[Rfam]
RNA sequence: ACCACCCCUAGCCCCGAUCAGGCGAAAAGCGGAGACCUUCACCGCUUGGGGUGGAACUUCAUGAAGGG
Numbered sequence: 001a002c003c004a005c006c007c008c009u010a011g012c013c014c015c016g017a018u019c020a021g022g023c024g025a026a027a028a029g030c031g032g033a034g035a036c037c038u039u040c041a042c043c044g045c046u047u048g049g050g051g052u053g054g055a056a057c058u059u060c061a062u063g064a065a066g067g068g
Stems, first nucleotide, its partner, number of pairs: 002054007011023003029045004036068004